[Rfam]
RNA sequence: AUCUUUGCGCAGCGGCAGUAUCGUAGCCUAUGAGGUUUAUCUGAGGCGUGAUUAUUGCUAGUUGAAAACUUUACCCAAUACCCUGCUGUUGCAACUUGAGAUAUAGUUGGCACUGGCAAUUUUUGGUGGUCUUCCAGGAGG
Numbered sequence: 001a002u003c004u005u006u007g008c009g010c011a012g013c014g015g016c017a018g019u020a021u022c023g024u025a026g027c028c029u030a031u032g033a034g035g036u037u038u039a040u041c042u043g044a045g046g047c048g049u050g051a052u053u054a055u056u057g058c059u060a061g062u063u064g065a066a067a068a069c070u071u072u073a074c075c076c077a078a079u080a081c082c083c084u085g086c087u088g089u090u091g092c093a094a095c096u097u098g099a100g101a102u103a104u105a106g107u108u109g110g111c112a113c114u115g116g117c118a119a120u121u122u123u124u125g126g127u128g129g130u131c132u133u134c135c136a137g138g139a140g141g
Stems, first nucleotide, its partner, number of pairs: 020052005026047003034042002085117003088113002092109005130141004
RNA: U4 spliceosomal RNA